[Rfam]
RNA sequence: CGGAGCCGGACCCGCAGGUGGAUGAGAAGCACCGACGUGGUUCGACAGCGACACCGCAAGGUGGCGCUGAACGUCCGGAGGACGGCCCGGAGGGCGAAGCGCCACAGGCGCGGAGUCAUCCACCUCCCUCCACCA
Numbered sequence: 001c002g003g004a005g006c007c008g009g010a011c012c013c014g015c016a017g018g019u020g021g022a023u024g025a026g027a028a029g030c031a032c033c034g035a036c037g038u039g040g041u042u043c044g045a046c047a048g049c050g051a052c053a054c055c056g057c058a059a060g061g062u063g064g065c066g067c068u069g070a071a072c073g074u075c076c077g078g079a080g081g082a083c084g085g086c087c088c089g090g091a092g093g094g095c096g097a098a099g100c101g102c103c104a105c106a107g108g109c110g111c112g113g114a115g116u117c118a119u120c121c122a123c124c125u126c127c128c129u130c131c132a133c134c135a
Base pairs, nucleotide, nucleotide: 016125017124018123019122020121021120023118033096034095036093041091042090043089044088048065049064072084073083074082075081076080